[Rfam]
RNA: nhaA-I RNA
Organism: Diaphorobacter ruginosibacter
RNA sequence: GGGUGUCCCCGGAGCAAUGGAGCUCUGGGACAGGUUUGUUCAGCGCGGGUCGGGCCGCCCGCG
Numbered sequence: 001g002g003g004u005g006u007c008c009c010c011g012g013a014g015c016a017a018u019g020g021a022g023c024u025c026u027g028g029g030a031c032a033g034g035u036u037u038g039u040u041c042a043g044c045g046c047g048g049g050u051c052g053g054g055c056c057g058c059c060c061g062c063g
Stems, first nucleotide, its partner, number of pairs: 005031005011025002044063007